[Rfam]
RNA sequence: AAAGCGGUAUCAUAAGGCCUGGUGACCUUGGCCCUUCGUAGAAGGGACCUAGCUCCUGCUGAAAUGCAGGAGGACAGAUUGAAAUCAAGGCCCAGGGUGAGCCGCUUU
Numbered sequence: 001a002a003a004g005c006g007g008u009a010u011c012a013u014a015a016g017g018c019c020u021g022g023u024g025a026c027c028u029u030g031g032c033c034c035u036u037c038g039u040a041g042a043a044g045g046g047a048c049c050u051a052g053c054u055c056c057u058g059c060u061g062a063a064a065u066g067c068a069g070g071a072g073g074a075c076a077g078a079u080u081g082a083a084a085u086c087a088a089g090g091c092c093c094a095g096g097g098u099g100a101g102c103c104g105c106u107u108u
Stems, first nucleotide, its partner, number of pairs: 001108007010100003018096005026090003033045005053072007
A member of the RNA family "DUF3800-III RNA", 108 nucleotides long.